[Rfam]
RNA sequence: CCCGCCACUAUACCUGUCCUGACGUCAGUGGCUGGUAUAUUCCAGUGGUGAGCUAAGAGUAAUAGCCGGCCCAGGAAGCAGCCCUCUUCUGCUGUGAAGAGACCUGUGCCGAAAGGCUGGGAACAAGU
Dot-bracket structure: ....(((((........((.(.((....)).).))........))))).................(((.(...((...(((..(..(((......)))..)..)))..))....)..)))........